[Rfam]
RNA: Lysine riboswitch aptamer
RNA sequence: UAAUGGGGUAGAGGCGCAAAACGAAUGAGUAAACUGUGGAGCUUGGGAAGUGUUGAAGCAGUUAGAAAGGUCAAUUUGCCGAAGUGAGAAUGUGUUCCCCCAUAUUCUUGCUGGGUCGUUGUUGAAUAAAUAACGAACUGUCACUGUGUAGCAGUGGAGGACUACUUUUAAU
Numbered sequence: 001u002a003a004u005g006g007g008g009u010a011g012a013g014g015c016g017c018a019a020a021a022c023g024a025a026u027g028a029g030u031a032a033a034c035u036g037u038g039g040a041g042c043u044u045g046g047g048a049a050g051u052g053u054u055g056a057a058g059c060a061g062u063u064a065g066a067a068a069g070g071u072c073a074a075u076u077u078g079c080c081g082a083a084g085u086g087a088g089a090a091u092g093u094g095u096u097c098c099c100c101c102a103u104a105u106u107c108u109u110g111c112u113g114g115g116u117c118g119u120u121g122u123u124g125a126a127u128a129a130a131u132a133a134c135g136a137a138c139u140g141u142c143a144c145u146g147u148g149u150a151g152c153a154g155u156g157g158a159g160g161a162c163u164a165c166u167u168u169u170a171a172u
Stems, first nucleotide, its partner, number of pairs: 006167006016079005023072002032063006083112012113139002116136008141157007